Source information: potC RNA: a 73-nucleotide RNA. Rfam's curators put it in the seed alignment. By type it is a cis-regulatory element.

RNA sequence: UUUAUAAUGCCCACGAUCUGUUGAAUUUUAGGAUUUUUACCCUUUCCUAAACAAUUAUUGUGGGCAUUGACAA
Numbered sequence: 001u002u003u004a005u006a007a008u009g010c011c012c013a014c015g016a017u018c019u020g021u022u023g024a025a026u027u028u029u030a031g032g033a034u035u036u037u038u039a040c041c042c043u044u045u046c047c048u049a050a051a052c053a054a055u056u057a058u059u060g061u062g063g064g065c066a067u068u069g070a071c072a073a
Stems, first nucleotide, its partner, number of pairs: 006068010029049005
Dot-bracket structure: .....((((((((((.............(((((...........))))).........)))))))))).....